Overview
FMN riboswitch aptamer (RFN element): a 114-nucleotide RNA from Parvimonas micra. The organism belongs to Parvimonas, within Bacteria. Its family is annotated with FMN binding in the Gene Ontology. Pairs were carried over by alignment from the consensus structure, which is taken from published work.

RNA sequence: ACUUGUCUUCAGGGCGAGGGUCGUUUCCUCACCGGCAGUAAAGUCUGCGAGCAUUAUGCUGAAUUGGUGAAAUUCCAAUACCGACAGUUAAAGUCUGGAUGAAAGAAGAAAUGU
Number, nucleotide and partner (000 for none) at each position: 001a000002c000003u000004u111005g000006u109007c108008u107009u106010c105011a000012g000013g000014g000015c000016g000017a029018g028019g027020g000021u000022c000023g000024u000025u000026u000027c019028c018029u017030c000031a094032c093033c083034g082035g048036c047037a046038g045039u000040a000041a000042a000043g081044u080045c038046u037047g036048c035049g000050a000051g059052c058053a057054u000055u000056a000057u053058g052059c051060u000061g000062a000063a079064u078065u077066g076067g075068u000069g000070a000071a000072a000073u000074u000075c067076c066077a065078a064079u063080a044081c043082c034083g033084a000085c097086a096087g095088u000089u000090a000091a000092a000093g032094u031095c087096u086097g085098g000099a000100u000101g000102a000103a000104a000105g010106a009107a008108g007109a006110a000111a004112u000113g000114u000